About this RNA: This 168-nucleotide RNA from Afipia sp. GAS231 belongs to the Rfam family "FMN riboswitch aptamer (RFN element)". The family has 146 seed sequences and 6,230 matches in Rfam 15.1. The base pairs follow the family's consensus structure, which is taken from published work. The match comes from Rfam's covariance-model search (114 bits). The organism belongs to Afipia, within Bacteria.
Nucleotides: 168
Stems, first nucleotide, its partner, number of pairs: 004165007017029003031148002033137002035063004058135002066113002117133005139151003
Number, partner (000 for none) and nucleotide at each position: 001000c002000g003000a004165u005164g006163u007162u008161c009160u010159c011000a012000g013000g014000g015000c016000g017029g018028g019027g020000u021000g022000a023000a024000a025000a026000u027019c028018c029017c030000c031148a032147c033137c034136g035063g036062c037061g038060g039000u040000a041000a042000g043000g044000g045000u046000g047000a048000c049000g050000u051000a052000g053000c054000c055000c056000a057000a058135g059134c060038c061037c062036g063035c064000g065000a066113g067112c068000g069000c070000c071000u072000u073000c074000u075000u076000c077000u078000c079000g080000u081000c082000c083000a084000g085000a086000c087000u088000u089000u090000c091000u092000u093000g094000g095000g096000g097000c098000g099000c100000g101000a102000a103000g104000g105000a106000g107000g108000g109000u110000c111000a112067g113066c114000a115000g116000a117133u118132u119131c120130g121129g122000u123000g124000u125000g126000a127000c128000u129121c130120c131119g132118a133117a134059g135058c136034c137033g138000a139151c140150g141149g142000u143000u144000a145000u146000a147032g148031u149141c150140c151139g152000g153000a154000u155000g156000a157000a158000a159010g160009a161008g162007a163006a164005c165004g166000g167000u168000u